[Rfam]
RNA sequence: AGCGAAAAGGGCAAACCCGGCGAAAGCCGGGGACGCGAAAGCCGUGAGUCUAAGGCAUUCGUGCACCGCUUCGGGCACGGGUGCUAUGACCGUCAGGUUGCCGCUC
Numbered sequence: 001a002g003c004g005a006a007a008a009g010g011g012c013a014a015a016c017c018c019g020g021c022g023a024a025a026g027c028c029g030g031g032g033a034c035g036c037g038a039a040a041g042c043c044g045u046g047a048g049u050c051u052a053a054g055g056c057a058u059u060c061g062u063g064c065a066c067c068g069c070u071u072c073g074g075g076c077a078c079g080g081g082u083g084c085u086a087u088g089a090c091c092g093u094c095a096g097g098u099u100g101c102c103g104c105u106c
Stems, first nucleotide, its partner, number of pairs: 003103002011036002016031006034092001040099004045095003048090003
Dot-bracket structure: ..((......((...((((((....))))))..[))...((((.((((((.....................................))).])))))))..))...
This 106-nucleotide RNA sequence belongs to the Rfam family "c-di-GMP-I-GGC riboswitch aptamer". Its Rfam clan is "c-di-GMP_I riboswitch clan".